[Rfam]
RNA: mir-19 microRNA precursor family
RNA sequence: GUCUCUGGUUAGUUUUGCUGGUUUGCUUUCAGCUUUUCAAUCUACUGCUGUGCAAAUCCAUGCAAAACUGAUCAUAGAA
Dot-bracket structure: ..((.(((((((((((((.(((((((.(..(((.............)))).))))).))..))))))))))))).))..